The record is a 99-nucleotide RNA sequence from Denitromonas iodatirespirans, which matches "Bacterial small signal recognition particle RNA" in Rfam.

[Rfam]
RNA sequence: GGCGGGUCUCCUCGCAUUGCAGCGCGGUGAACCUGGUCAGGGCCGGAAGGCAGCAGCCACAGCCGCUCCCUGCAAGUGCCGAGGGUCAGGCUCGCCACC
Numbered sequence: 001g002g003c004g005g006g007u008c009u010c011c012u013c014g015c016a017u018u019g020c021a022g023c024g025c026g027g028u029g030a031a032c033c034u035g036g037u038c039a040g041g042g043c044c045g046g047a048a049g050g051c052a053g054c055a056g057c058c059a060c061a062g063c064c065g066c067u068c069c070c071u072g073c074a075a076g077u078g079c080c081g082a083g084g085g086u087c088a089g090g091c092u093c094g095c096c097a098c099c
Base pairs, nucleotide, nucleotide: 004093005092006091007090008089009085010084011083012082013081014080015076017075018074019073020072021071022070024066025065026064027063028062034059035058036057037056042051043050044049
Pairs were carried over by alignment from the consensus structure, which is taken from published work. About the family: The signal recognition particle (SRP) is a universally conserved ribonucleoprotein involved in the co-translational targeting of proteins to membranes. The family's RNA type in Rfam is non-coding RNA gene. The match comes from Rfam's covariance-model search (81 bits). On this family, see Rosenblad et al., Nucleic Acids Res 2003: "SRPDB: Signal Recognition Particle Database".